[Rfam]
RNA sequence: CUGGGUUAGGAUAGGGGUCUAACUGUCAUGGUACUCUGCCACAGCGAUGAGCAAGAGAAUGGUUCUUUGGACUCAUUCCUCCACUAGCAACAAGGUGACGAUGUUCUGUCCGUUCCAACAACGGUGUGGCCAAUCUGGUUCUACAGGAAUGCGAGAGUCAGUUGGGUCCUAAUUAGCGAUGAAUCGGUUGAGGCAGGAUAACUGAGCAAAUCAUAGUCGCAACACUGUAGGAUGGGCGGAUGGCAGAACUGAGCAUGAGUUAGUGGUGGGUGAAAUCCAAGAGUUGGACUUGAGUUUUU
Numbered sequence: 001c002u003g004g005g006u007u008a009g010g011a012u013a014g015g016g017g018u019c020u021a022a023c024u025g026u027c028a029u030g031g032u033a034c035u036c037u038g039c040c041a042c043a044g045c046g047a048u049g050a051g052c053a054a055g056a057g058a059a060u061g062g063u064u065c066u067u068u069g070g071a072c073u074c075a076u077u078c079c080u081c082c083a084c085u086a087g088c089a090a091c092a093a094g095g096u097g098a099c100g101a102u103g104u105u106c107u108g109u110c111c112g113u114u115c116c117a118a119c120a121a122c123g124g125u126g127u128g129g130c131c132a133a134u135c136u137g138g139u140u141c142u143a144c145a146g147g148a149a150u151g152c153g154a155g156a157g158u159c160a161g162u163u164g165g166g167u168c169c170u171a172a173u174u175a176g177c178g179a180u181g182a183a184u185c186g187g188u189u190g191a192g193g194c195a196g197g198a199u200a201a202c203u204g205a206g207c208a209a210a211u212c213a214u215a216g217u218c219g220c221a222a223c224a225c226u227g228u229a230g231g232a233u234g235g236g237c238g239g240a241u242g243g244c245a246g247a248a249c250u251g252a253g254c255a256u257g258a259g260u261u262a263g264u265g266g267u268g269g270g271u272g273a274a275a276u277c278c279a280a281g282a283g284u285u286g287g288a289c290u291u292g293a294g295u296u297u298u299u
Stems, first nucleotide, its partner, number of pairs: 001044003004024007029041003049296002054291002060286006067280004075276003079272001081270002085262004093256001095254002103249007110239002114236004119230001121228007128168004133163001135161008144151002176220005186212004194204003
The record is a 299-nucleotide RNA from Naegleria lovaniensis, which matches "Metazoan signal recognition particle RNA" in Rfam. Rfam 15.1 lists 383,523 matches to the family in 1,221 species. The organism belongs to Naegleria, within Eukaryota. Gene Ontology terms of the family: SRP-dependent cotranslational protein targeting to membrane, signal sequence recognition and signal recognition particle, endoplasmic reticulum targeting.